[Rfam]
RNA sequence: ACAUGAAAACAACAAAUCCCACAUAUAUGCUAGAGAAUAGGCUCUAGCGUCUCUACCCGGCACCGUAAUGUCGGACUAUGCGGGAAGCAACAAGACUU
Dot-bracket structure: .................(((.((((...(((((((......)))))))........((((((......))))))..)))).)))..............
Numbered sequence: 001a002c003a004u005g006a007a008a009a010c011a012a013c014a015a016a017u018c019c020c021a022c023a024u025a026u027a028u029g030c031u032a033g034a035g036a037a038u039a040g041g042c043u044c045u046a047g048c049g050u051c052u053c054u055a056c057c058c059g060g061c062a063c064c065g066u067a068a069u070g071u072c073g074g075a076c077u078a079u080g081c082g083g084g085a086a087g088c089a090a091c092a093a094g095a096c097u098u
Stems, first nucleotide, its partner, number of pairs: 018084003022080004029048007057074006
Shown here is a 98-nucleotide RNA sequence from Kurthia sp. 11kri321, a member of the family "Purine riboswitch aptamer". From the family's description: Riboswitches are metabolite binding domains within certain messenger RNAs that serve as precision sensors for their corresponding targets. Pairs were carried over by alignment from the consensus structure, which is taken from published work. It scores 71 bits against the family's covariance model.